[Rfam]
RNA sequence: CCCAUAACUUAUUUUUGAGUUUUCUUUUGGUCCCUUAACUAUUAAAAGUUUCGUUUUGGUCCCUUAACUUAUUUUUUUGUUUCAUUUUGAUCCCUUAACUAUAAUACAUUCAUCCUAACAUAAAGGACCAAAGUGGUUGACGGAUGAAGAGUUAAGGGACCAAAACGAAACCAAAAAAGUAAGUUAAAGGACGAAAACGAAACUUUUAAUAGUUAAGAGACCAAAACGAAACCAAAAAAUAAGUCAAGGGA
Numbered sequence: 001c002c003c004a005u006a007a008c009u010u011a012u013u014u015u016u017g018a019g020u021u022u023u024c025u026u027u028u029g030g031u032c033c034c035u036u037a038a039c040u041a042u043u044a045a046a047a048g049u050u051u052c053g054u055u056u057u058g059g060u061c062c063c064u065u066a067a068c069u070u071a072u073u074u075u076u077u078u079g080u081u082u083c084a085u086u087u088u089g090a091u092c093c094c095u096u097a098a099c100u101a102u103a104a105u106a107c108a109u110u111c112a113u114c115c116u117a118a119c120a121u122a123a124a125g126g127a128c129c130a131a132a133g134u135g136g137u138u139g140a141c142g143g144a145u146g147a148a149g150a151g152u153u154a155a156g157g158g159a160c161c162a163a164a165a166c167g168a169a170a171c172c173a174a175a176a177a178a179g180u181a182a183g184u185u186a187a188a189g190g191a192c193g194a195a196a197a198c199g200a201a202a203c204u205u206u207u208a209a210u211a212g213u214u215a216a217g218a219g220a221c222c223a224a225a226a227c228g229a230a231a232c233c234a235a236a237a238a239a240u241a242a243g244u245c246a247a248g249g250g251a
Stems, first nucleotide, its partner, number of pairs: 002249002005246001007244002025226003029222003034217010045206003
The record is a 251-nucleotide RNA from Medicago truncatula, which matches "MIR2655 microRNA precursor family" in Rfam. NCBI's taxonomy places the organism under Eukaryota, Streptophyta, eudicotyledons, rosids, Medicago. Its family is annotated with RISC complex and miRNA-mediated post-transcriptional gene silencing in the Gene Ontology. It scores 155 bits against the family's covariance model.